[Rfam]
RNA sequence: GACCUGUUGCCGAACAGUCACCCAACGGUGUGCGUUCCGUUCAUUUCAGACGGAUAGGCGCAGGUCUUUA
Numbered sequence: 001g002a003c004c005u006g007u008u009g010c011c012g013a014a015c016a017g018u019c020a021c022c023c024a025a026c027g028g029u030g031u032g033c034g035u036u037c038c039g040u041u042c043a044u045u046u047c048a049g050a051c052g053g054a055u056a057g058g059c060g061c062a063g064g065u066c067u068u069u070a
Stems, first nucleotide, its partner, number of pairs: 001066007009059003017033002019030004036054005
RNA: DUF3800-IX RNA